This 60-nucleotide sequence from Actinoplanes sp. OR16 belongs to the Rfam family "Actino-pnp RNA".
RNA sequence: CCCGGUCCUCGGUAGUGGUUCCCAGGCAGACAAUCCUGGGCACUUCGAUCGAAGACCGGC
Numbered sequence: 001c002c003c004g005g006u007c008c009u010c011g012g013u014a015g016u017g018g019u020u021c022c023c024a025g026g027c028a029g030a031c032a033a034u035c036c037u038g039g040g041c042a043c044u045u046c047g048a049u050c051g052a053a054g055a056c057c058g059g060c
Stems, first nucleotide, its partner, number of pairs: 002059006009052005017044003021040006028034001